[Rfam]
RNA sequence: GAGCAAGAUGAAAAGGUUUUACUACUGACCUUUACAACUAUUAAGUCUUCUACACUUGAUCUGAGUUUA
Numbered sequence: 001g002a003g004c005a006a007g008a009u010g011a012a013a014a015g016g017u018u019u020u021a022c023u024a025c026u027g028a029c030c031u032u033u034a035c036a037a038c039u040a041u042u043a044a045g046u047c048u049u050c051u052a053c054a055c056u057u058g059a060u061c062u063g064a065g066u067u068u069a
Stems, first nucleotide, its partner, number of pairs: 001068004012033007
RNA: Small nucleolar RNA U2-30